[Rfam]
pan motif: an 88-nucleotide RNA from Proteiniborus sp. DW1.
RNA sequence: UAGCCAAUAUCCAAUGGAAUUGGACUAUAUUACUGUAAAUAAAAAUAUAUUAAUUCGACUGGUAUCCUUUAAGGAACUAGAGCGGGAG
Numbered sequence: 001u002a003g004c005c006a007a008u009a010u011c012c013a014a015u016g017g018a019a020u021u022g023g024a025c026u027a028u029a030u031u032a033c034u035g036u037a038a039a040u041a042a043a044a045a046u047a048u049a050u051u052a053a054u055u056c057g058a059c060u061g062g063u064a065u066c067c068u069u070u071a072a073g074g075a076a077c078u079a080g081a082g083c084g085g086g087a088g
Stems, first nucleotide, its partner, number of pairs: 001027003004023005010018002056084002059080005065075003